Shown here is a 74-nucleotide sequence from Herbaspirillum seropedicae, a member of the family "Fluoride riboswitch aptamer (crcB RNA motif)". Taxonomically the source falls in Herbaspirillum seropedicae (Bacteria, Burkholderiales, Oxalobacteraceae, Herbaspirillum). Pairs were carried over by alignment from the consensus structure, which is taken from published work.
RNA sequence: UGCGCCGCAGGAGAUGGCAUUCCUCCUCAAACCGCCGCCAAGUCCAGCUUGGGGCUGAUGAUGCCUACAGUGAC
Numbered sequence: 001u002g003c004g005c006c007g008c009a010g011g012a013g014a015u016g017g018c019a020u021u022c023c024u025c026c027u028c029a030a031a032c033c034g035c036c037g038c039c040a041a042g043u044c045c046a047g048c049u050u051g052g053g054g055c056u057g058a059u060g061a062u063g064c065c066u067a068c069a070g071u072g073a074c
Base pairs, nucleotide, nucleotide: 010026011025012024013023016065017064018063019062020061021060034055035054036053